[Rfam]
RNA sequence: UGUGGUGGUUGAAAGUCUGUGCACCCAGCAGCCUUCUCCUGGUGGGAUGUUCAAAAAGCAGUGCUACACCAGUGCAGCAUUUGGCAUCCUUCAUCUUCAGUCUGCUGUGCCUGUUAAACCAGGUAUUUUUGCUGAAACAAUC
Numbered sequence: 001u002g003u004g005g006u007g008g009u010u011g012a013a014a015g016u017c018u019g020u021g022c023a024c025c026c027a028g029c030a031g032c033c034u035u036c037u038c039c040u041g042g043u044g045g046g047a048u049g050u051u052c053a054a055a056a057a058g059c060a061g062u063g064c065u066a067c068a069c070c071a072g073u074g075c076a077g078c079a080u081u082u083g084g085c086a087u088c089c090u091u092c093a094u095c096u097u098c099a100g101u102c103u104g105c106u107g108u109g110c111c112u113g114u115u116a117a118a119c120c121a122g123g124u125a126u127u128u129u130u131g132c133u134g135a136a137a138c139a140a141u142c
Stems, first nucleotide, its partner, number of pairs: 002064003006060002017058002020055001021050003025046002027043001029041003067131002071127003075122001077120001083111005
RNA: Small nucleolar RNA SNORA8